[Rfam]
RNA sequence: AAAUAGCUACUGUAGAAUCAUUGGAGAUAGUGCUUACGUCAUUAACAUAGAAUGUACAAAUCCAAAAAAUAGUAGCAACAGUGAACUGGUGCUGUUGUGAUUUGACAUCCACAUCUAGUAUCGAGGCUGAAGAUGAUGUUAUGUGGUCCUAGAACGGCCUGAGGUAGAGGGGUUUUAGUCGGUAAGCCUGGGGAAACCUUUCUGGGGAAUCUGACACACCCAGUCGUACGGACGGCUGGGUGUCGUUUGAAGAUUUCCCCUCCUCUACGAAA
Numbered sequence: 001a002a003a004u005a006g007c008u009a010c011u012g013u014a015g016a017a018u019c020a021u022u023g024g025a026g027a028u029a030g031u032g033c034u035u036a037c038g039u040c041a042u043u044a045a046c047a048u049a050g051a052a053u054g055u056a057c058a059a060a061u062c063c064a065a066a067a068a069a070u071a072g073u074a075g076c077a078a079c080a081g082u083g084a085a086c087u088g089g090u091g092c093u094g095u096u097g098u099g100a101u102u103u104g105a106c107a108u109c110c111a112c113a114u115c116u117a118g119u120a121u122c123g124a125g126g127c128u129g130a131a132g133a134u135g136a137u138g139u140u141a142u143g144u145g146g147u148c149c150u151a152g153a154a155c156g157g158c159c160u161g162a163g164g165u166a167g168a169g170g171g172g173u174u175u176u177a178g179u180c181g182g183u184a185a186g187c188c189u190g191g192g193g194a195a196a197c198c199u200u201u202c203u204g205g206g207g208a209a210u211c212u213g214a215c216a217c218a219c220c221c222a223g224u225c226g227u228a229c230g231g232a233c234g235g236c237u238g239g240g241u242g243u244c245g246u247u248u249g250a251a252g253a254u255u256u257c258c259c260c261u262c263c264u265c266u267a268c269g270a271a272a
Stems, first nucleotide, its partner, number of pairs: 038137006144270001146268002166266005171258002178215005187207003190203005217242006
The record is a 272-nucleotide RNA sequence from Agrilus planipennis, which matches "R2 RNA element" in Rfam. Rfam's curators write: This family represents the 3' UTR region of the R2 retrotransposable element. This family is known to interact with the R2-encoded reverse transcriptase in a reaction known as target primed reverse transcription (TPRT). By type it is a cis-regulatory element. Its family is annotated with regulation of reverse transcription in the Gene Ontology. The family's consensus secondary structure is taken from published work. The literature on the family includes a 2004 paper in RNA by Ruschak et al., "Secondary structure models of the 3' untranslated regions of diverse R2 RNAs".